Background: Small nucleolar RNA SNORD42: a 66-nucleotide RNA from Crocodylus porosus. For this family Rfam cites "Purified box C/D snoRNPs are able to reproduce site-specific 2'-O-methylation of target RNA in vitro" (Galardi et al., Mol Cell Biol, 2002). The source organism's lineage runs through Eukaryota, Deuterostomia, Sarcopterygii, Sauropsida and Crocodylus. snoRNA U42 is found in intron 3 of the ribosomal protein L23a (RPL23a) gene in humans and is also present in mice. By type it is a C/D-box small nucleolar RNA.
[Rfam]
RNA sequence: GUGCAGGUGAUGUAAAGUAGAUCACAGCUGAGUCCCGUGAUGCUCUCAAAGGAACCACUGAUGCGC
Number, nucleotide and partner (000 for none) at each position: 001g066002u065003g064004c063005a062006g000007g000008u000009g000010a000011u000012g000013u000014a000015a000016a000017g000018u000019a000020g000021a000022u000023c000024a000025c000026a000027g000028c000029u000030g000031a000032g000033u000034c000035c000036c000037g000038u000039g000040a000041u000042g000043c000044u000045c000046u000047c000048a000049a000050a000051g000052g000053a000054a000055c000056c000057a000058c000059u000060g000061a000062u005063g004064c003065g002066c001